About this RNA:
Glycine riboswitch aptamer: a 114-nucleotide RNA from Allokutzneria albata.

[Rfam]
RNA sequence: UGAUCCCACGCGGGAGAGACCGUGACGGGCCGGGUCGACCCGGUACCCAGGAACGGCGCCGAAGGAGCAACUCCUCCCCGGAACCUCUCAGGCACCCAGGACCGCGUGGGCAGA
Numbered sequence: 001u002g003a004u005c006c007c008a009c010g011c012g013g014g015a016g017a018g019a020c021c022g023u024g025a026c027g028g029g030c031c032g033g034g035u036c037g038a039c040c041c042g043g044u045a046c047c048c049a050g051g052a053a054c055g056g057c058g059c060c061g062a063a064g065g066a067g068c069a070a071c072u073c074c075u076c077c078c079c080g081g082a083a084c085c086u087c088u089c090a091g092g093c094a095c096c097c098a099g100g101a102c103c104g105c106g107u108g109g110g111c112a113g114a
Stems, first nucleotide, its partner, number of pairs: 006109008020056004058093003061089002065087003071081002
The pairing is the family consensus, mapped onto this sequence. Taxonomically the source falls in Allokutzneria (Bacteria, Actinomycetota, Actinomycetes, Pseudonocardiaceae).